[Rfam]
RNA sequence: CCCCCUCGGCUGUGCCGAGGGUAAGAGCUUAUAGCAGAAUAAAGACAAAAACUCCUUUUGAUUUAAAAUAGGUUUGCGGUCUGGCAACUGCAAACGAAAAAUCAAAAG
Numbered sequence: 001c002c003c004c005c006u007c008g009g010c011u012g013u014g015c016c017g018a019g020g021g022u023a024a025g026a027g028c029u030u031a032u033a034g035c036a037g038a039a040u041a042a043a044g045a046c047a048a049a050a051a052c053u054c055c056u057u058u059u060g061a062u063u064u065a066a067a068a069u070a071g072g073u074u075u076g077c078g079g080u081c082u083g084g085c086a087a088c089u090g091c092a093a094a095c096g097a098a099a100a101a102u103c104a105a106a107a108g
Stems, first nucleotide, its partner, number of pairs: 003021008027035003055108009064096001072095009

Shown here is a 108-nucleotide RNA sequence from Lawsonibacter hominis, a member of the family "STnc490 Hfq binding RNA".
Pairs were carried over by alignment from the consensus structure, which was predicted with WAR.
It scores 61 bits against the family's covariance model.
Rfam 15.1 lists 285 matches to the family in 122 species.